About this RNA: Rfam assigns this 118-nucleotide RNA sequence from Marmoricola sp. Leaf446 to the family "TPP riboswitch aptamer (THI element)".
RNA sequence: AGCGUCCGACAGGGGAGCGCCGGGGGCCAGAGCCGGAGGCGCUGAGAGUGCGGGAGAGCCGCAGACCCUCGAACCUGCUCCGGUUAGUACCGGCGAAGGAAGUCGAAGGAGACUCCCG
Numbered sequence: 001a002g003c004g005u006c007c008g009a010c011a012g013g014g015g016a017g018c019g020c021c022g023g024g025g026g027c028c029a030g031a032g033c034c035g036g037a038g039g040c041g042c043u044g045a046g047a048g049u050g051c052g053g054g055a056g057a058g059c060c061g062c063a064g065a066c067c068c069u070c071g072a073a074c075c076u077g078c079u080c081c082g083g084u085u086a087g088u089a090c091c092g093g094c095g096a097a098g099g100a101a102g103u104c105g106a107a108g109g110a111g112a113c114u115c116c117c118g
Stems, first nucleotide, its partner, number of pairs: 007105004011069004017042005049063005074099003080093004
Dot-bracket structure: ......((((((((..(((((................)))))......(((((.....)))))..))))....(((...((((......))))...)))..)))).............

A search with the family's covariance model found it, with a score of 58 bits. The source organism's lineage runs through Bacteria, Bacillati, Propionibacteriales, Nocardioidaceae and Marmoricola.